Notes: The family of this 114-nucleotide RNA from Geotrypetes seraphini is "Potassium channel RNA editing signal". The literature on the family includes a 2004 paper in Nat Struct Mol Biol by Bhalla et al., "Control of human potassium channel inactivation by editing of a small mRNA hairpin". Rfam's curators write: This family represents a group of sequences related to the human potassium channel Kv1.1 hairpin element which directs the efficient modification of an adenosine to inosine by an adenosine deaminase acting on RNA (ADAR).

[Rfam]
RNA sequence: GUAGGUUAUGGUGAUAUUUAUCCUAAAACACUACUGGGCAAAAUAGUUGGAGGAUUAUGUUGCAUUGCUGGAGUGCUAGUGAUAGCAUUGCCCAUUCCAAUUAUUGUGAACAAU
Numbered sequence: 001g002u003a004g005g006u007u008a009u010g011g012u013g014a015u016a017u018u019u020a021u022c023c024u025a026a027a028a029c030a031c032u033a034c035u036g037g038g039c040a041a042a043a044u045a046g047u048u049g050g051a052g053g054a055u056u057a058u059g060u061u062g063c064a065u066u067g068c069u070g071g072a073g074u075g076c077u078a079g080u081g082a083u084a085g086c087a088u089u090g091c092c093c094a095u096u097c098c099a100a101u102u103a104u105u106g107u108g109a110a111c112a113a114u
Stems, first nucleotide, its partner, number of pairs: 001114002004111001007108005013102003020095002037077004049063001051061001